[Rfam]
RNA sequence: UGUAAUAGUUGAAGCCUUUAUAAGGGUGAUCGGUAUUCACUCCCAACGGAAAAGGGGUGAUAUCCGAUGACAGUAUUUGAAGCUUUAAUGUUUUCGGUUGCUUUUACGAACUUAUUUAUGGCUGUACUGUCAUUUCACAAUAACAAAUAAUCCACCCUUCAUUUAUAAAAUAGGGUGGAUUAUUUCUCCAUUAUACGGAUCCCCUUAAAGGAUCAACUAUUACAAGCGGCCAUUGGUGUAACCGCACCAUGG
Numbered sequence: 001u002g003u004a005a006u007a008g009u010u011g012a013a014g015c016c017u018u019u020a021u022a023a024g025g026g027u028g029a030u031c032g033g034u035a036u037u038c039a040c041u042c043c044c045a046a047c048g049g050a051a052a053a054g055g056g057g058u059g060a061u062a063u064c065c066g067a068u069g070a071c072a073g074u075a076u077u078u079g080a081a082g083c084u085u086u087a088a089u090g091u092u093u094u095c096g097g098u099u100g101c102u103u104u105u106a107c108g109a110a111c112u113u114a115u116u117u118a119u120g121g122c123u124g125u126a127c128u129g130u131c132a133u134u135u136c137a138c139a140a141u142a143a144c145a146a147a148u149a150a151u152c153c154a155c156c157c158u159u160c161a162u163u164u165a166u167a168a169a170a171u172a173g174g175g176u177g178g179a180u181u182a183u184u185u186c187u188c189c190a191u192u193a194u195a196c197g198g199a200u201c202c203c204c205u206u207a208a209a210g211g212a213u214c215a216a217c218u219a220u221u222a223c224a225a226g227c228g229g230c231c232a233u234u235g236g237u238g239u240a241a242c243c244g245c246a247c248c249a250u251g252g
Stems, first nucleotide, its partner, number of pairs: 001224005007218003011214001016198002022159005028152003037060003041057004069131007083096001106123001107121001172187003199213004230252004235248005